RNase MRP: a 256-nucleotide RNA from Parambassis ranga. A search with the family's covariance model found it, with a score of 151 bits. NCBI's taxonomy places the organism under Eukaryota, Opisthokonta, Chordata, Acanthomorphata, Parambassis.

RNA sequence: GGGCAUUCAGAAGGCUUGCACUCUGGGCUACACACUGAGAACCAGUUUCUCUCCCCCCGCCCAGGGGAAAGUCCCCGGACCCGUGGCAGAAAGUGCCCUGGUUAAACCCAGUGCCGGCUCGCAUCUCACCGCAUCCAGCUGAGACGUUCACAUGAACUGAGCUCGGUGAUCCGCAGUCGACUUUGUCAGCGUUGAUAGUAAUGCAAGUGAGUUGCUACUAACGCCUUAACACAACGGGGCUCAUUCUCCGAAUGCU
Numbered sequence: 001g002g003g004c005a006u007u008c009a010g011a012a013g014g015c016u017u018g019c020a021c022u023c024u025g026g027g028c029u030a031c032a033c034a035c036u037g038a039g040a041a042c043c044a045g046u047u048u049c050u051c052u053c054c055c056c057c058c059g060c061c062c063a064g065g066g067g068a069a070a071g072u073c074c075c076c077g078g079a080c081c082c083g084u085g086g087c088a089g090a091a092a093g094u095g096c097c098c099u100g101g102u103u104a105a106a107c108c109c110a111g112u113g114c115c116g117g118c119u120c121g122c123a124u125c126u127c128a129c130c131g132c133a134u135c136c137a138g139c140u141g142a143g144a145c146g147u148u149c150a151c152a153u154g155a156a157c158u159g160a161g162c163u164c165g166g167u168g169a170u171c172c173g174c175a176g177u178c179g180a181c182u183u184u185g186u187c188a189g190c191g192u193u194g195a196u197a198g199u200a201a202u203g204c205a206a207g208u209g210a211g212u213u214g215c216u217a218c219u220a221a222c223g224c225c226u227u228a229a230c231a232c233a234a235c236g237g238g239g240c241u242c243a244u245u246c247u248c249c250g251a252a253u254g255c256u
Base pairs, nucleotide, nucleotide: 002256003255004254005253006252007251008250010248011247014208015207016206017205018204019203022065023064024063025062026061027060028059037051038050039049040048041047070241071240073239074238075237076236085097086096087095088094098111099110100109101108113178115176120173121172123170124169128167129166130165137163138162139161146157147156148155149154210226211225213223214222